About this RNA: Rfam assigns this 87-nucleotide RNA sequence from Gossypium lobatum to the family "MIR7486 microRNA precursor family". The family's consensus secondary structure was predicted with RNAalifold.

RNA sequence: CACGUUAGUGCGAGUUACUGACGUGGCAACAAAGCGUGCCCUCUAGGACGCGAUUUGUUGCCACAUCAGCAACUCACGCUGACGUGG
Numbered sequence: 001c002a003c004g005u006u007a008g009u010g011c012g013a014g015u016u017a018c019u020g021a022c023g024u025g026g027c028a029a030c031a032a033a034g035c036g037u038g039c040c041c042u043c044u045a046g047g048a049c050g051c052g053a054u055u056u057g058u059u060g061c062c063a064c065a066u067c068a069g070c071a072a073c074u075c076a077c078g079c080u081g082a083c084g085u086g087g
Base pairs, nucleotide, nucleotide: 001086002085003084004083005082006081007080008079009078010077012075013074014073015072016071018069019068020067021066023064024063025062026061027060028059029058030057031056032055033054035052036051037050038049040047041046
Its family is annotated with RISC complex and miRNA-mediated post-transcriptional gene silencing in the Gene Ontology.